[Rfam]
RNA sequence: CUUCCUCGAUCUGCUGCGGACAGAUGAAGUGGAUAUGCGCGUCGAAGCCGCCUGGUGUCAGGAUCUUGCCCUCGCCGGCGAUGAUUUCCGUGCCUGGGCCGAUGAUGAUGGUGACGCCAUCCUGCGUGUCCGGGUUGCCGGCCUUGCCGAUCGCGGCGAUCCGGCCGUCCUUCAGGCCAAUAUCGGCCUUGAGGAUGCCGGCGGUGGCAUCGACCACCAGGGCGUUGGUGAUGACGGUGUCGACCGCGCCCUGCGCCCGCGACACCUGGCUCUGGCCCAUGCCGUCGCGGAUG
Numbered sequence: 001c002u003u004c005c006u007c008g009a010u011c012u013g014c015u016g017c018g019g020a021c022a023g024a025u026g027a028a029g030u031g032g033a034u035a036u037g038c039g040c041g042u043c044g045a046a047g048c049c050g051c052c053u054g055g056u057g058u059c060a061g062g063a064u065c066u067u068g069c070c071c072u073c074g075c076c077g078g079c080g081a082u083g084a085u086u087u088c089c090g091u092g093c094c095u096g097g098g099c100c101g102a103u104g105a106u107g108a109u110g111g112u113g114a115c116g117c118c119a120u121c122c123u124g125c126g127u128g129u130c131c132g133g134g135u136u137g138c139c140g141g142c143c144u145u146g147c148c149g150a151u152c153g154c155g156g157c158g159a160u161c162c163g164g165c166c167g168u169c170c171u172u173c174a175g176g177c178c179a180a181u182a183u184c185g186g187c188c189u190u191g192a193g194g195a196u197g198c199c200g201g202c203g204g205u206g207g208c209a210u211c212g213a214c215c216a217c218c219a220g221g222g223c224g225u226u227g228g229u230g231a232u233g234a235c236g237g238u239g240u241c242g243a244c245c246g247c248g249c250c251c252u253g254c255g256c257c258c259g260c261g262a263c264a265c266c267u268g269g270c271u272c273u274g275g276c277c278c279a280u281g282c283c284g285u286c287g288c289g290g291a292u293g
Stems, first nucleotide, its partner, number of pairs: 001293001003291001005289001007287003012158006018076002022072002031052002034050001037048002057069002077148002081144001083142001085140001090138003094134002097130003104125001105123001107121003111117001164276004172269005178261001186223006201211001227257002233251001237249003

The family of this 293-nucleotide sequence from Mesorhizobium sp. Root172 is "5' ureB small RNA".
Its family is annotated with negative regulation of gene expression in the Gene Ontology.